[Rfam]
RNA sequence: AUUUGUUUAUGACGGCCACAGCCUAAAGUACACACGGCUGUGACUUGAUUUGAAAGGAAAU
Numbered sequence: 001a002u003u004u005g006u007u008u009a010u011g012a013c014g015g016c017c018a019c020a021g022c023c024u025a026a027a028g029u030a031c032a033c034a035c036g037g038c039u040g041u042g043a044c045u046u047g048a049u050u051u052g053a054a055a056g057g058a059a060a061u
Stems, first nucleotide, its partner, number of pairs: 001061004014045002017042007028035002
RNA: Selenocysteine insertion sequence 1
Organism: Sus scrofa